[Rfam]
malK-I RNA: a 176-nucleotide RNA. The base pairs follow the family's consensus structure, which is taken from published work. The family's RNA type in Rfam is cis-regulatory element.
RNA sequence: UCCCACCGUCAGGCGGCACUCCACUUCAUGCCGCCGGACGGCAAAAGAUAAGGAGGAAUACCCGCUGUGGCUGGCGGUGCGGCAGUGUGGAGACCUGUCGUAAGGCACCGAGGGCAAUGCCCGUGCGAGGCCGUCUUUUGCGGAGGCAGGACGGUUACAGUCAAAAAUGUAUGGCA
Number, nucleotide and partner (000 for none) at each position: 001u000002c000003c000004c000005a000006c041007c040008g039009u038010c037011a000012g035013g034014c033015g032016g031017c030018a029019c000020u000021c000022c000023a000024c000025u000026u000027c000028a000029u018030g017031c016032c015033g014034c013035c012036g000037g010038a009039c008040g007041g006042c000043a000044a000045a000046a000047g000048a000049u000050a000051a000052g000053g000054a000055g000056g000057a000058a000059u000060a000061c000062c077063c076064g075065c074066u000067g000068u163069g162070g161071c160072u159073g158074g065075c064076g063077g062078u102079g101080c100081g099082g098083c097084a096085g095086u000087g094088u093089g000090g000091a000092g000093a088094c087095c085096u084097g083098u082099c081100g080101u079102a078103a000104g000105g126106c125107a124108c123109c000110g000111a000112g122113g121114g000115c000116a000117a000118u000119g000120c000121c113122c112123g108124u107125g106126c105127g000128a000129g156130g155131c154132c153133g152134u151135c150136u149137u000138u000139u148140g147141c146142g000143g000144a000145g000146g141147c140148a139149g136150g135151a134152c133153g132154g131155u130156u129157a000158c073159a072160g071161u070162c069163a068164a000165a000166a000167a000168u000169g000170u000171a000172u000173g000174g000175c000176a000